Shown here is a 166-nucleotide RNA from Vanilla planifolia, a member of the family "small nucleolar RNA snoR143". For this family Rfam cites "Mining small RNA sequencing data: a new approach to identify small nucleolar RNAs in Arabidopsis" (Chen and Wu, Nucleic Acids Res, 2009). Rfam 15.1 lists 660 matches to the family in 212 species. Its family is annotated with nucleolus and RNA processing in the Gene Ontology.
RNA sequence: AUGCAUCACUGUUAAAUGGUUCCUUGAUUUUUCUCGAUGUGGAGCCUUAAGCAGCGAUGCAAAAAACGAUGUCAUUCAAUUGGCAGCGGCCAGACAACCGUGGCGAUGGGUCCACAGAUAGCAGACGUUUUAAGUUCUGCCUGUCUACUGAUUCCAUCACACAUGU
Numbered sequence: 001a002u003g004c005a006u007c008a009c010u011g012u013u014a015a016a017u018g019g020u021u022c023c024u025u026g027a028u029u030u031u032u033c034u035c036g037a038u039g040u041g042g043a044g045c046c047u048u049a050a051g052c053a054g055c056g057a058u059g060c061a062a063a064a065a066a067c068g069a070u071g072u073c074a075u076u077c078a079a080u081u082g083g084c085a086g087c088g089g090c091c092a093g094a095c096a097a098c099c100g101u102g103g104c105g106a107u108g109g110g111u112c113c114a115c116a117g118a119u120a121g122c123a124g125a126c127g128u129u130u131u132a133a134g135u136u137c138u139g140c141c142u143g144u145c146u147a148c149u150g151a152u153u154c155c156a157u158c159a160c161a162c163a164u165g166u
Stems, first nucleotide, its partner, number of pairs: 002061005010053003016048001018046006024037003103160001105158006121140005

It is annotated as an H/ACA-box small nucleolar RNA. It scores 69 bits against the family's covariance model.